[Rfam]
RNA: mir-283 microRNA precursor family
Organism: Clunio marinus
RNA sequence: UUUGCAAUUGAAAGGUCAAUAUCAGCUGGUAAUUCUGGGUGGCAAAUGCACAUGUUCUGACAUUCCCAGAAUUUCAACUGAUAUCCACUUUCUGAUUGUU
Numbered sequence: 001u002u003u004g005c006a007a008u009u010g011a012a013a014g015g016u017c018a019a020u021a022u023c024a025g026c027u028g029g030u031a032a033u034u035c036u037g038g039g040u041g042g043c044a045a046a047u048g049c050a051c052a053u054g055u056u057c058u059g060a061c062a063u064u065c066c067c068a069g070a071a072u073u074u075c076a077a078c079u080g081a082u083a084u085c086c087a088c089u090u091u092c093u094g095a096u097u098g099u100u
Stems, first nucleotide, its partner, number of pairs: 012091005019084007027076003032072008